[Rfam]
RNA sequence: UCGAACGUCCCUGGGUGUCCGUUGUCGCGAGCGAAAGAUCCACCGCGUUGCCAAGCCGCAACAAAAAAGCCCCGACACGCGGGGCUU
Numbered sequence: 001u002c003g004a005a006c007g008u009c010c011c012u013g014g015g016u017g018u019c020c021g022u023u024g025u026c027g028c029g030a031g032c033g034a035a036a037g038a039u040c041c042a043c044c045g046c047g048u049u050g051c052c053a054a055g056c057c058g059c060a061a062c063a064a065a066a067a068a069g070c071c072c073c074g075a076c077a078c079g080c081g082g083g084g085c086u087u
Stems, first nucleotide, its partner, number of pairs: 015059003019055001024051002027048002031046003068086007